[Rfam]
RNA: mir-1271 microRNA precursor family
Organism: Equus caballus
RNA sequence: CUUGGCACCUCGUAAGCACUCAGUAAAUACUUGUUGAGUGCCUGCUGUGUGCCAGGC
Numbered sequence: 001c002u003u004g005g006c007a008c009c010u011c012g013u014a015a016g017c018a019c020u021c022a023g024u025a026a027a028u029a030c031u032u033g034u035u036g037a038g039u040g041c042c043u044g045c046u047g048u049g050u051g052c053c054a055g056g057c
Stems, first nucleotide, its partner, number of pairs: 001056008010047001012045003016041010